About this RNA:
mir-31 microRNA precursor family: an 81-nucleotide RNA from Gouania willdenowi. The match comes from Rfam's covariance-model search (51 bits). Pairs were carried over by alignment from the consensus structure, which was predicted with RNAalifold.
[Rfam]
RNA sequence: GGAGAGAAAAAUGGCAAUUUGGUGGCAUAGCAGGGCUUUGAUAACAACAGCUAUGCCAACAUCUUGCCUUUUUUCUAAAAC
Numbered sequence: 001g002g003a004g005a006g007a008a009a010a011a012u013g014g015c016a017a018u019u020u021g022g023u024g025g026c027a028u029a030g031c032a033g034g035g036c037u038u039u040g041a042u043a044a045c046a047a048c049a050g051c052u053a054u055g056c057c058a059a060c061a062u063c064u065u066g067c068c069u070u071u072u073u074u075c076u077a078a079a080a081c
Stems, first nucleotide, its partner, number of pairs: 005076007013068005020061002023058009